Rfam assigns this 77-nucleotide sequence from Coptotermes formosanus to the family "mir-252 microRNA precursor family". Pairs were carried over by alignment from the consensus structure, which was predicted with RNAalifold. Clan: mir-252 microRNA precursor family. The source organism's lineage runs through Eukaryota, Pterygota, Polyneoptera, Rhinotermitidae and Coptotermes.
RNA sequence: UUCGUGUUCUAAGUAGUUGUGCCGUAGACAAGGGUCGAACUGAAAUCUUGCCUGCGCACGUCUGCUUAAUACACUGA
Numbered sequence: 001u002u003c004g005u006g007u008u009c010u011a012a013g014u015a016g017u018u019g020u021g022c023c024g025u026a027g028a029c030a031a032g033g034g035u036c037g038a039a040c041u042g043a044a045a046u047c048u049u050g051c052c053u054g055c056g057c058a059c060g061u062c063u064g065c066u067u068a069a070u071a072c073a074c075u076g077a
Stems, first nucleotide, its partner, number of pairs: 001077002004074004010068007018060002024055004029050002